Description: Rfam assigns this 77-nucleotide RNA from Polypedilum vanderplanki to the family "mir-965 microRNA precursor family". Its family is annotated with miRNA-mediated post-transcriptional gene silencing and RISC complex in the Gene Ontology. The base pairs follow the family's consensus structure, which was predicted with RNAalifold. It scores 70 bits against the family's covariance model. On this family, see Huang et al., Bioorg Khim 2012: "The regulation of silkworm fibroin L chain production by miRNA-965 and miRNA-1926 in insect cells".
RNA sequence: UACUUGAGGGGAAAAACUGUGCGUUAUUAUGUUGAAUUAAAUUAUUAUCAUAAGCGUAUAGCUUUUCCCCUUAAGUG
Numbered sequence: 001u002a003c004u005u006g007a008g009g010g011g012a013a014a015a016a017c018u019g020u021g022c023g024u025u026a027u028u029a030u031g032u033u034g035a036a037u038u039a040a041a042u043u044a045u046u047a048u049c050a051u052a053a054g055c056g057u058a059u060a061g062c063u064u065u066u067c068c069c070c071u072u073a074a075g076u077g
Base pairs, nucleotide, nucleotide: 003075004074005073006072007071009069010068011067013065014064017061018060019059020058021057024054025053028052029051030050031049